[Rfam]
RNA sequence: ACUGGCAAUGAUGACACACUUGCCCUCACUGAGAACACAGUUCGAUAAUGAGAACCCUGUUAUGUACUCACAAAUGCUGAGCCAGA
Numbered sequence: 001a002c003u004g005g006c007a008a009u010g011a012u013g014a015c016a017c018a019c020u021u022g023c024c025c026u027c028a029c030u031g032a033g034a035a036c037a038c039a040g041u042u043c044g045a046u047a048a049u050g051a052g053a054a055c056c057c058u059g060u061u062a063u064g065u066a067c068u069c070a071c072a073a074a075u076g077c078u079g080a081g082c083c084a085g086a
Base pairs, nucleotide, nucleotide: 002085003084004083005082006081